Rfam assigns this 95-nucleotide RNA from Papaver nudicaule to the family "Small nucleolar RNA snoR26". A search with the family's covariance model found it, with a score of 58 bits.
Nucleotides: 095
Stems, first nucleotide, its partner, number of pairs: 004093005
Number, partner (000 for none) and nucleotide at each position: 001000u002000c003000c004093g005092c006091a007090u008089c009000a010000a011000u012000g013000a014000u015000g016000a017000c018000a019000a020000a021000a022000a023000c024000c025000u026000u027000g028000u029000a030000a031000c032000a033000u034000c035000c036000u037000u038000g039000c040000a041000c042000u043000u044000u045000g046000a047000a048000u049000u050000u051000u052000u053000a054000u055000a056000g057000u058000g059000a060000a061000g062000a063000g064000a065000a066000c067000u068000a069000a070000u071000g072000g073000g074000g075000a076000a077000a078000u079000a080000u081000a082000a083000g084000u085000c086000u087000g088000a089008g090007a091006u092005g093004c094000u095000c